Shown here is a 182-nucleotide sequence from Terrisporobacter othiniensis, a member of the family "glmS glucosamine-6-phosphate activated ribozyme aptamer".
Rfam's curators write: This entry contains a glucosamine-6-phosphate activated ribozyme that is found in the mRNA for GlmS. GlmS is an enzyme that uses fructose-6-phosphate and glutamine to generate glucosamine-6-phosphate. The ribozyme catalyses self cleavage of the glmS mRNA that is thought to regulate GlmS activity.
RNA sequence: AUUUACUUUUAAGCGCCAGAACUUAACAAUAACAGAAUUUUAUUAGUAGUAUUGGGGGUUAAGUUGACGAGGACAGAGUUAAUCGAUUUUUCGGCGGAUGCUCUGCGGUGUGUUUACCAUCGUUAAGGUUUUCUCAAAUCACGGAAGUGAUUCUGUGGACAAAGGAAAACUCAAGUAAGCUU
Numbered sequence: 001a002u003u004u005a006c007u008u009u010u011a012a013g014c015g016c017c018a019g020a021a022c023u024u025a026a027c028a029a030u031a032a033c034a035g036a037a038u039u040u041u042a043u044u045a046g047u048a049g050u051a052u053u054g055g056g057g058g059u060u061a062a063g064u065u066g067a068c069g070a071g072g073a074c075a076g077a078g079u080u081a082a083u084c085g086a087u088u089u090u091u092c093g094g095c096g097g098a099u100g101c102u103c104u105g106c107g108g109u110g111u112g113u114u115u116a117c118c119a120u121c122g123u124u125a126a127g128g129u130u131u132u133c134u135c136a137a138a139u140c141a142c143g144g145a146a147g148u149g150a151u152u153c154u155g156u157g158g159a160c161a162a163a164g165g166a167a168a169a170c171u172c173a174a175g176u177a178a179g180c181u182u
Stems, first nucleotide, its partner, number of pairs: 020065008074105005083094004106122005127171006140157007

By type it is a riboswitch. The source organism's lineage runs through Bacteria, Bacillota, Clostridia, Peptostreptococcaceae and Terrisporobacter. Pairs were carried over by alignment from the consensus structure, which is taken from published work.